[Rfam]
RNA sequence: UCCUCACAAAUGCUGCGUUUCUUUGCUCACACACAGACAACGGCUUAACUGCAGCUCGUCUCCUCCUGGCAAAUGAGAAAUUCGGAGUAAUCUUCAAAAAUAACGCUACCUCUCAUCUUUCGCGGAUUUGAGCUCUGGCAUCUGCCCGUGAGGGCCUGCGAUGACACUCAUCGUUGCAUUCGGCAUCAGAAAUUUCAGCCCGACCGCGUUCGCGUGUGACAGGUUAUGGGAGUCGGUGCGAAGAUUGUGUGCCCUCCACGACUGGGCGAUCACUUUAGUGCAAUACGCGGCGUAUCUGAGGCUUCUGCUGGUGGACUUUGGUUCGCUGGCGGAGGUGGAUGGUAUCAUUCGAUUCCGAUUACUCUUGUGAGGA
Numbered sequence: 001u002c003c004u005c006a007c008a009a010a011u012g013c014u015g016c017g018u019u020u021c022u023u024u025g026c027u028c029a030c031a032c033a034c035a036g037a038c039a040a041c042g043g044c045u046u047a048a049c050u051g052c053a054g055c056u057c058g059u060c061u062c063c064u065c066c067u068g069g070c071a072a073a074u075g076a077g078a079a080a081u082u083c084g085g086a087g088u089a090a091u092c093u094u095c096a097a098a099a100a101u102a103a104c105g106c107u108a109c110c111u112c113u114c115a116u117c118u119u120u121c122g123c124g125g126a127u128u129u130g131a132g133c134u135c136u137g138g139c140a141u142c143u144g145c146c147c148g149u150g151a152g153g154g155c156c157u158g159c160g161a162u163g164a165c166a167c168u169c170a171u172c173g174u175u176g177c178a179u180u181c182g183g184c185a186u187c188a189g190a191a192a193u194u195u196c197a198g199c200c201c202g203a204c205c206g207c208g209u210u211c212g213c214g215u216g217u218g219a220c221a222g223g224u225u226a227u228g229g230g231a232g233u234c235g236g237u238g239c240g241a242a243g244a245u246u247g248u249g250u251g252c253c254c255u256c257c258a259c260g261a262c263u264g265g266g267c268g269a270u271c272a273c274u275u276u277a278g279u280g281c282a283a284u285a286c287g288c289g290g291c292g293u294a295u296c297u298g299a300g301g302c303u304u305c306u307g308c309u310g311g312u313g314g315a316c317u318u319u320g321g322u323u324c325g326c327u328g329g330c331g332g333a334g335g336u337g338g339a340u341g342g343u344a345u346c347a348u349u350c351g352a353u354u355c356c357g358a359u360u361a362c363u364c365u366u367g368u369g370a371g372g373a
Stems, first nucleotide, its partner, number of pairs: 001373004007367003012291007022073004036060003040056001041054001083357005092243004144155004158174005176239003179235001197225003292345005
Nuclear RNase P: a 373-nucleotide RNA sequence from Fulvia fulva. Ribonuclease P (RNase P) is a ubiquitous endoribonuclease, found in archaea, bacteria and eukarya as well as chloroplasts and mitochondria. Its best characterised activity is the generation of mature 5'-ends of tRNAs by cleaving the 5'-leader elements of precursor-tRNAs. The family has 116 seed sequences and 3,848 matches in Rfam 15.1. The match comes from Rfam's covariance-model search (41 bits). The base pairs follow the family's consensus structure, which is taken from published work.